Overview
This 106-nucleotide sequence from Macaca mulatta belongs to the Rfam family "mir-223 microRNA precursor family". Taxonomically the source falls in Macaca (Eukaryota, Eumetazoa, Euteleostomi, Haplorrhini). Rfam 15.1 lists 674 matches to the family in 638 species. The literature on the family includes a 2003 paper in Science by Lim et al., "Vertebrate microRNA genes".

[Rfam]
RNA sequence: CCGGCCUCCUGCAGUGCCACGCUCCGUGUAUUUGACAAGCUGAGUUGGACACUCCGUGUGGUAGAGUGUCAGUUUGUCAAAUACCCCAAGUGCGGCAUAUGCUUAC
Numbered sequence: 001c002c003g004g005c006c007u008c009c010u011g012c013a014g015u016g017c018c019a020c021g022c023u024c025c026g027u028g029u030a031u032u033u034g035a036c037a038a039g040c041u042g043a044g045u046u047g048g049a050c051a052c053u054c055c056g057u058g059u060g061g062u063a064g065a066g067u068g069u070c071a072g073u074u075u076g077u078c079a080a081a082u083a084c085c086c087c088a089a090g091u092g093c094g095g096c097a098u099a100u101g102c103u104u105a106c
Stems, first nucleotide, its partner, number of pairs: 020092004026086001028084014048070004053065002